[Rfam]
About this RNA: SAM riboswitch aptamer (S box leader): a 106-nucleotide RNA sequence from Flavihumibacter solisilvae. Rfam describes the family as follows. The SAM riboswitch is found upstream of a number of genes which code for proteins involved in methionine or cysteine biosynthesis in Gram-positive bacteria. Rfam links the family to the GO term regulation of gene expression. NCBI's taxonomy places the organism under Bacteria, Pseudomonadati, Chitinophagia, Chitinophagaceae, Flavihumibacter.

RNA sequence: CACUUAUCAAGAAAGGCUGAGGGAAUGGCCCGAUGAAGCCCUGGCAACCAGUUUCGCAAUGAAGCAAUGGUGCCAAUUCCAACCUGCGCUGCAGGAGAGAUAAGUA
Numbered sequence: 001c002a003c004u005u006a007u008c009a010a011g012a013a014a015g016g017c018u019g020a021g022g023g024a025a026u027g028g029c030c031c032g033a034u035g036a037a038g039c040c041c042u043g044g045c046a047a048c049c050a051g052u053u054u055c056g057c058a059a060u061g062a063a064g065c066a067a068u069g070g071u072g073c074c075a076a077u078u079c080c081a082a083c084c085u086g087c088g089c090u091g092c093a094g095g096a097g098a099g100a101u102a103a104g105u106a
Stems, first nucleotide, its partner, number of pairs: 002105007013042001015040003021031003026081003043074004048070002051065003078098001083095005